Shown here is a 176-nucleotide sequence from Anopheles sinensis, a member of the family "drz-agam-2-2 ribozyme". A search with the family's covariance model found it, with a score of 106 bits.
RNA sequence: UUGACCAUUUAGUCUGACCAUGGGUCUGCAAAGGAACUAUAAGCUAUCCUCCCCCACUCCUACUCAAUGCGUCCGCGAAGUACAGAACGGCAGCUUGUCGCUUAAAUAUCCAAGCUUGGGUACAUGGGGAAACCCACCCCCUUGGGCGAAUGGCCGGCAAGGCUGAAUUGAGAGGA
Number, nucleotide and partner (000 for none) at each position: 001u000002u000003g000004a000005c000006c000007a000008u000009u000010u000011a000012g000013u086014c085015u084016g083017a000018c000019c000020a000021u000022g000023g054024g053025u000026c043027u042028g000029c000030a000031a000032a000033g000034g000035a000036a000037c000038u000039a000040u000041a000042a027043g026044c000045u000046a000047u000048c000049c000050u000051c000052c000053c024054c023055c000056a000057c000058u176059c175060c174061u173062a000063c172064u171065c170066a169067a168068u167069g081070c080071g000072u000073c090074c089075g000076c000077g000078a000079a000080g070081u069082a000083c016084a015085g014086a013087a000088c000089g074090g073091c000092a000093g000094c161095u160096u159097g158098u157099c156100g155101c000102u153103u152104a000105a000106a000107u000108a151109u150110c000111c148112a000113a000114g000115c000116u000117u136118g135119g134120g133121u132122a000123c000124a000125u000126g000127g000128g000129g000130a000131a000132a121133c120134c119135c118136a117137c000138c000139c146140c145141c000142u000143u000144g000145g140146g139147c000148g111149a000150a109151u108152g103153g102154c000155c100156g099157g098158c097159a096160a095161g094162g000163c000164u000165g000166a000167a068168u067169u066170g065171a064172g063173a061174g060175g059176a058
NCBI's taxonomy places the organism under Eukaryota, Eumetabola, Aparaglossata, Panorpida, Myzorhynchus.